[Rfam]
RNA sequence: CUGUGUUAAGGAUAGAAGUGGCAUCCUUUUUUUGUGCAAAUGAAAUUAUUGUAUUGAAAUACAAACUAUAAUAUAAUUUGUAAACUUGAUAAGAUACUGAAACAAGUUCAGCACAAGAAAAGAUAUAGCGGAUAGCCUGACUUUUG
Numbered sequence: 001c002u003g004u005g006u007u008a009a010g011g012a013u014a015g016a017a018g019u020g021g022c023a024u025c026c027u028u029u030u031u032u033u034g035u036g037c038a039a040a041u042g043a044a045a046u047u048a049u050u051g052u053a054u055u056g057a058a059a060u061a062c063a064a065a066c067u068a069u070a071a072u073a074u075a076a077u078u079u080g081u082a083a084a085c086u087u088g089a090u091a092a093g094a095u096a097c098u099g100a101a102a103c104a105a106g107u108u109c110a111g112c113a114c115a116a117g118a119a120a121a122g123a124u125a126u127a128g129c130g131g132a133u134a135g136c137c138u139g140a141c142u143u144u145u146g
Base pairs, nucleotide, nucleotide: 009138010137011136013134014133018129019128023124024123025122029119030118031117032116033115034114035113036112